[Rfam]
RNA sequence: UGGAGUUGCUGAAUUAGAGAUCGGCACUCUAUCUUUUUAUCUAUAAUUUUGGAGUUUAAAAUGUCUCUAAGCGUUGAAGCUAAAGCUAAGAUCGUUUCUGAGUUUGGUCGUGGUACU
Numbered sequence: 001u002g003g004a005g006u007u008g009c010u011g012a013a014u015u016a017g018a019g020a021u022c023g024g025c026a027c028u029c030u031a032u033c034u035u036u037u038u039a040u041c042u043a044u045a046a047u048u049u050u051g052g053a054g055u056u057u058a059a060a061a062u063g064u065c066u067c068u069a070a071g072c073g074u075u076g077a078a079g080c081u082a083a084a085g086c087u088a089a090g091a092u093c094g095u096u097u098c099u100g101a102g103u104u105u106g107g108u109c110g111u112g113g114u115a116c117u
Base pairs, nucleotide, nucleotide: 007026008025009024010023011022012021048071049070050069051068052067053066054065
Dot-bracket structure: ......((((((........)))))).....................(((((((..........)))))))..............................................

This 117-nucleotide RNA sequence from Buttiauxella agrestis belongs to the Rfam family "Ribosomal S15 leader". By type it is a cis-regulatory leader. From the family's description: The E. coli Ribosomal S15 gene 5' UTR can form two alternative structures. One that is a series of three hairpins, The other includes a pseudoknot. This structure causes translational regulation of the S15 protein. The alignment of this family contains only the final two hairpins which are conserved in other species, and also includes the complete region that forms the alternate structures. Clan: Ribosomal Protein S15 Leader clan. On this family, see Benard et al., Biochimie 1996: "Pseudoknot and translational control in the expression of the S15 ribosomal protein". It scores 108 bits against the family's covariance model.